[Rfam]
RNA sequence: AUGCAAAUUCUCUGGCAGGAAUCUCUGCAUGGAUCUUGAAUAAGGGCAUGGACCUUGGAGGGAGGAGAGGGAGGGCCUCCCUCUCCUCUCCAAAUCCAUCAGUUUUGUCCAUGUUUUGGCCACCAGCUUCGCUCCUAGGUGCAUGACUGCAAAUUCCGGCCAUGCCGAGUAGGGCUUCUGGCUCAAAGCAUGGCAAACCGGCAAGUCACGAAUCGGCGAUGGGAAGCUCCAGCAAGGAUCUCC
Numbered sequence: 001a002u003g004c005a006a007a008u009u010c011u012c013u014g015g016c017a018g019g020a021a022u023c024u025c026u027g028c029a030u031g032g033a034u035c036u037u038g039a040a041u042a043a044g045g046g047c048a049u050g051g052a053c054c055u056u057g058g059a060g061g062g063a064g065g066a067g068a069g070g071g072a073g074g075g076c077c078u079c080c081c082u083c084u085c086c087u088c089u090c091c092a093a094a095u096c097c098a099u100c101a102g103u104u105u106u107g108u109c110c111a112u113g114u115u116u117u118g119g120c121c122a123c124c125a126g127c128u129u130c131g132c133u134c135c136u137a138g139g140u141g142c143a144u145g146a147c148u149g150c151a152a153a154u155u156c157c158g159g160c161c162a163u164g165c166c167g168a169g170u171a172g173g174g175c176u177u178c179u180g181g182c183u184c185a186a187a188g189c190a191u192g193g194c195a196a197a198c199c200g201g202c203a204a205g206u207c208a209c210g211a212a213u214c215g216g217c218g219a220u221g222g223g224a225a226g227c228u229c230c231a232g233c234a235a236g237g238a239u240c241u242c243c
Stems, first nucleotide, its partner, number of pairs: 057091005102198004107194002121188001225241002228238002

Rfam assigns this 243-nucleotide sequence from Cocos nucifera to the family "Early nodulin 40".
A reference for the family is Gultyaev and Roussis (2007), "Identification of conserved secondary structures and expansion segments in enod40 RNAs reveals new enod40 homologues in plants", Nucleic Acids Res.
The organism belongs to Cocos, within Eukaryota.
Its family is annotated with nodulation in the Gene Ontology.